Rfam assigns this 132-nucleotide sequence from Kingdonia uniflora to the family "Small nucleolar RNA U19". Pairs were carried over by alignment from the consensus structure, which was predicted with WAR. The family's RNA type in Rfam is H/ACA-box small nucleolar RNA.

RNA sequence: AUUUGGCUUAGUUAUGAGGCAUACAUUAAUAGGUCUCGUUCUUUCUUUUGGACUGACUGAGAUCUUCUUAUGCCGUUUGAGUGGACUAUUUGCAUCCUCAGUCUAUUGUCCUUUAAGCAGCUUUGGAAAUAA
Numbered sequence: 001a002u003u004u005g006g007c008u009u010a011g012u013u014a015u016g017a018g019g020c021a022u023a024c025a026u027u028a029a030u031a032g033g034u035c036u037c038g039u040u041c042u043u044u045c046u047u048u049u050g051g052a053c054u055g056a057c058u059g060a061g062a063u064c065u066u067c068u069u070a071u072g073c074c075g076u077u078u079g080a081g082u083g084g085a086c087u088a089u090u091u092g093c094a095u096c097c098u099c100a101g102u103c104u105a106u107u108g109u110c111c112u113u114u115a116a117g118c119a120g121c122u123u124u125g126g127a128a129a130u131a132a
Base pairs, nucleotide, nucleotide: 004021005020007018008017009016036056037055038054041051042050067126068125070123072121073120076117077116078115079114081113083111084110085109086108088106089105